A member of the RNA family "HgcE RNA (Pab105)" from Pyrococcus horikoshii, 130 nucleotides long. Rfam's curators write: The HgcE ncRNA gene was identified computationally in AT-rich hyperthermophiles. The genes were named hgcA through hgcG ('high GC').It was also identified as a part of Pab105 H/ACA snoRNA with rRNA targets. On this family, see Klein et al., Proc Natl Acad Sci U S A 2002: "Noncoding RNA genes identified in AT-rich hyperthermophiles". Rfam classes the family as an H/ACA-box small nucleolar RNA. NCBI's taxonomy places the organism under Archaea, Methanobacteriati, Methanobacteriota, Thermococcaceae, Pyrococcus horikoshii. Gene Ontology term of the family: RNA processing.
[Rfam]
RNA sequence: GGCGCGCAAUGAACGAGGUGACGUCGUCGGGCGGACAGGGCCCGGUCUCCGGGGCCGCCUGAGGUUGCCGAGAAUGGCGUUCAAUGAAGGCGGGCGGAUAAUCCGGGCCUAAAGAACUUUAAUUCUAACU
Dot-bracket structure: .....................................((((((((...((....((((((......(((......))).........))))))..)).....))))))))....................